Rfam assigns this 85-nucleotide RNA sequence from Bacillaceae bacterium SAS-127 to the family "c-di-GMP-I riboswitch aptamer". Pairs were carried over by alignment from the consensus structure, which is taken from published work. Lineage of the source: Bacteria > Bacillati > Bacilli > Caryophanales > Bacillaceae. The family is grouped with related families in Rfam's "c-di-GMP_I riboswitch clan".
RNA sequence: AUGAAGGCGUGGUACAGCUAGGGAAACCUGGUGUCACAAAGCUAUAGGGGCUAAAGGUCGCGAUCAAUGCCAGCCAGCUACCGUU
Numbered sequence: 001a002u003g004a005a006g007g008c009g010u011g012g013u014a015c016a017g018c019u020a021g022g023g024a025a026a027c028c029u030g031g032u033g034u035c036a037c038a039a040a041g042c043u044a045u046a047g048g049g050g051c052u053a054a055a056g057g058u059c060g061c062g063a064u065c066a067a068u069g070c071c072a073g074c075c076a077g078c079u080a081c082c083g084u085u
Stems, first nucleotide, its partner, number of pairs: 012037002017032006040079004047075002049071003056065003